[Rfam]
Nucleotides: 159
Base pairs, nucleotide, nucleotide: 013116014115015114016043018042019041020040021039022038024037026035027034028033044085046083047082049081051078052077053076055074056073057072058071087112088111089110090108091107092106094104095103133158134157135156136155137154138153141150142149143148
Number, partner (000 for none) and nucleotide at each position: 001000u002000u003000a004000c005000u006000g007000a008000u009000a010000a011000a012000a013116c014115a015114g016043g017000u018042g019041g020040g021039a022038a023000a024037a025000a026035c027034a028033c029000g030000a031000a032000g033028g034027u035026g036000g037024u038022u039021u040020u041019c042018c043016c044085a045000a046083g047082g048000c049081g050000a051078g052077g053076c054000u055074u056073a057072u058071c059000c060000a061000u062000u063000c064000c065000a066000c067000u068000c069000c070000a071058g072057a073056u074055g075000u076053g077052c078051u079000g080000a081049c082047c083046c084000c085044u086000g087112u088111g089110a090108u091107u092106u093000c094104c095103c096000c097000a098000a099000a100000u101000g102000u103095g104094g105000g106092a107091a108090a109000c110089u111088c112087g113000a114015c115014u116013g117000c118000a119000u120000a121000a122000u123000u124000u125000g126000u127000g128000g129000u130000a131000g132000u133158a134157g135156g136155g137154g138153a139000c140000u141150g142149u143148g144000u145000u146000c147000g148143c149142g150141c151000u152000u153138u154137c155136c156135c157134c158133u159000g
The record is a 159-nucleotide RNA sequence from Papio anubis, which matches "U1 spliceosomal RNA" in Rfam. Clan: U1 clan. On this family, see Kretzner et al., Proc Natl Acad Sci U S A 1990: "Saccharomyces cerevisiae U1 small nuclear RNA secondary structure contains both universal and yeast-specific domains". The source organism's lineage runs through Eukaryota, Eumetazoa, Amniota, Boreoeutheria and Papio. Rfam 15.1 lists 40,184 matches to the family in 1,499 species. U1 is a small nuclear RNA (snRNA) component of the spliceosome (involved in pre-mRNA splicing).